[Rfam]
RNA sequence: AUUGCAAGUUCAUGGCCAUAGUAGAAGUGUUCAUGGCACGACCUGUCAGAUUCCGACGAAUCUACAAAUUCUGCU
Numbered sequence: 001a002u003u004g005c006a007a008g009u010u011c012a013u014g015g016c017c018a019u020a021g022u023a024g025a026a027g028u029g030u031u032c033a034u035g036g037c038a039c040g041a042c043c044u045g046u047c048a049g050a051u052u053c054c055g056a057c058g059a060a061u062c063u064a065c066a067a068a069u070u071c072u073g074c075u
Base pairs, nucleotide, nucleotide: 014043015042017040020075021074022073023072024071025070026069027039028038029037048063049062050061051060052059053058
Dot-bracket structure: .............[[.[..((((((((((.......)))].]]....((((((....)))))).....)))))))
The record is a 75-nucleotide sequence from Alligator mississippiensis, which matches "Mammalian CPEB3 ribozyme" in Rfam. The family's consensus secondary structure is taken from published work. The mammalian CPEB3 ribozyme is a self cleaving RNA located in the second intron of the CPEB3 gene which belongs to a family of genes regulating messenger RNA polyadenylation. The match comes from Rfam's covariance-model search (50 bits).